RNA: mir-71 microRNA precursor family
Organism: Pediculus humanus
RNA sequence: ACUUUUUGAAAGACAUGGGUAGUGAGAUGUUGGUUCACGUGUCAUUUUUACCUCUCACUACCUUGUCUUUCAUGAAGAA
Numbered sequence: 001a002c003u004u005u006u007u008g009a010a011a012g013a014c015a016u017g018g019g020u021a022g023u024g025a026g027a028u029g030u031u032g033g034u035u036c037a038c039g040u041g042u043c044a045u046u047u048u049u050a051c052c053u054c055u056c057a058c059u060a061c062c063u064u065g066u067c068u069u070u071c072a073u074g075a076a077g078a079a
Base pairs, nucleotide, nucleotide: 008071009070010069011068012067013066014065015064017063018062019061021059022058023057024056025055026054027053029051